[Rfam]
RNA sequence: AGGCAGCCCCCUUGUGAUUAUACAGUGGCAGGGGGGCGUUAUUCUGCUCAUAAAUUAGUUCUUUUGCUCUUCAGAUUUGCUGAGAUUGUUCUUUUAUUCGGUCUCUGAAGCUGGUCUAGUAAGCAUAAGCACAUU
Numbered sequence: 001a002g003g004c005a006g007c008c009c010c011c012u013u014g015u016g017a018u019u020a021u022a023c024a025g026u027g028g029c030a031g032g033g034g035g036g037c038g039u040u041a042u043u044c045u046g047c048u049c050a051u052a053a054a055u056u057a058g059u060u061c062u063u064u065u066g067c068u069c070u071u072c073a074g075a076u077u078u079g080c081u082g083a084g085a086u087u088g089u090u091c092u093u094u095u096a097u098u099c100g101g102u103c104u105c106u107g108a109a110g111c112u113g114g115u116c117u118a119g120u121a122a123g124c125a126u127a128a129g130c131a132c133a134u135u
Stems, first nucleotide, its partner, number of pairs: 002040003007036009017026001061129003066124003073117005079111003084103005
RNA: Small nucleolar RNA snoR77